[Rfam]
RNA sequence: AGCCGCGCGGUAAGCACAAAGCGAACUAUUCUUUCGCCUUUUACUAAAGAAUACCGUGUGCUUGCCGCAAAUAGCGGCAUACGCCAAUUUUUGGAGGGUUCUCUUUUCUCGGAGAGGAU
Numbered sequence: 001a002g003c004c005g006c007g008c009g010g011u012a013a014g015c016a017c018a019a020a021g022c023g024a025a026c027u028a029u030u031c032u033u034u035c036g037c038c039u040u041u042u043a044c045u046a047a048a049g050a051a052u053a054c055c056g057u058g059u060g061c062u063u064g065c066c067g068c069a070a071a072u073a074g075c076g077g078c079a080u081a082c083g084c085c086a087a088u089u090u091u092u093g094g095a096g097g098g099u100u101c102u103c104u105u106u107u108c109u110c111g112g113a114g115a116g117g118a119u
Base pairs, nucleotide, nucleotide: 003077004076005075006074008067009066010065011064012063013062014061015060016059017058018057027053028052029051030050031049032048033047034046095119099118100117101116102115103114104113
About this RNA: The family of this 119-nucleotide RNA sequence from Ricinus communis is "U5 spliceosomal RNA". It is annotated as a spliceosomal small nuclear RNA. The organism belongs to Ricinus, within Eukaryota.